[Rfam]
RNA sequence: GUAGGCUACGGUGACAUGUACCCGGAAACGGUAUGGGGUAAAUUAGUGGGCUCCAUGUGUGCCAUUGCUGGGGUGCUCACCAUCUCGCUACCUGUCCCUGUGAUCGUCUCCAAC
Numbered sequence: 001g002u003a004g005g006c007u008a009c010g011g012u013g014a015c016a017u018g019u020a021c022c023c024g025g026a027a028a029c030g031g032u033a034u035g036g037g038g039u040a041a042a043u044u045a046g047u048g049g050g051c052u053c054c055a056u057g058u059g060u061g062c063c064a065u066u067g068c069u070g071g072g073g074u075g076c077u078c079a080c081c082a083u084c085u086c087g088c089u090a091c092c093u094g095u096c097c098c099u100g101u102g103a104u105c106g107u108c109u110c111c112a113a114c
Stems, first nucleotide, its partner, number of pairs: 001114002004111002008107004014101003018097001020095002037077004049063003